[Rfam]
RNA sequence: GGCGUAAAGGGUGUGUAGGCGGCCGCGCAAGUCUGGUGUGAAAUCUUCACCGCUUAACGGGAAGAGGGCACUGGAAACUGCGUGGCUCGAGUAUGGUAGAGGCAAGCGGAAUUCCUGGUGUAGCGGUGGAAUGUGUAGAUAUCAGGAAGAACACCGGUGGCGAAGGCGGCUUGCUGGGCCAUCACUGACGCUGAGACACGAAAGCGUGGGGAGCAAACGGGAUUAGAUACCCCGGUAGUCCACGCUGUAAACGGUGCGCACUAGUUGUGAGGGGUAUCGACCCCCCUUGUGACGAAGUUAACACAUUAAGUGCGCCGCCUGGGGAGUACGGCCGCAAGGUUGAAACUCAAAGGAAU
Numbered sequence: 001g002g003c004g005u006a007a008a009g010g011g012u013g014u015g016u017a018g019g020c021g022g023c024c025g026c027g028c029a030a031g032u033c034u035g036g037u038g039u040g041a042a043a044u045c046u047u048c049a050c051c052g053c054u055u056a057a058c059g060g061g062a063a064g065a066g067g068g069c070a071c072u073g074g075a076a077a078c079u080g081c082g083u084g085g086c087u088c089g090a091g092u093a094u095g096g097u098a099g100a101g102g103c104a105a106g107c108g109g110a111a112u113u114c115c116u117g118g119u120g121u122a123g124c125g126g127u128g129g130a131a132u133g134u135g136u137a138g139a140u141a142u143c144a145g146g147a148a149g150a151a152c153a154c155c156g157g158u159g160g161c162g163a164a165g166g167c168g169g170c171u172u173g174c175u176g177g178g179c180c181a182u183c184a185c186u187g188a189c190g191c192u193g194a195g196a197c198a199c200g201a202a203a204g205c206g207u208g209g210g211g212a213g214c215a216a217a218c219g220g221g222a223u224u225a226g227a228u229a230c231c232c233c234g235g236u237a238g239u240c241c242a243c244g245c246u247g248u249a250a251a252c253g254g255u256g257c258g259c260a261c262u263a264g265u266u267g268u269g270a271g272g273g274g275u276a277u278c279g280a281c282c283c284c285c286c287u288u289g290u291g292a293c294g295a296a297g298u299u300a301a302c303a304c305a306u307u308a309a310g311u312g313c314g315c316c317g318c319c320u321g322g323g324g325a326g327u328a329c330g331g332c333c334g335c336a337a338g339g340u341u342g343a344a345a346c347u348c349a350a351a352g353g354a355a356u
Stems, first nucleotide, its partner, number of pairs: 001319003009316001011199004016193001018192003022086007030079002032075008045064004050060003090186003093182005101175007108152001112148008123134003160167002204245006213239002218234004256315006264293011297304002321348003330341004
This 356-nucleotide part of an RNA from an uncultured bacterium belongs to the Rfam family "Bacterial small subunit ribosomal RNA". Rfam's curators put it in the seed alignment. The literature on the family includes a 2002 paper in BMC Bioinformatics by Cannone et al., "The comparative RNA web (CRW) site: an online database of comparative sequence and structure information for ribosomal, intron, and other RNAs". Rfam 15.1 lists 42,628 matches to the family in 10,626 species. Its Rfam clan is "SSU clan".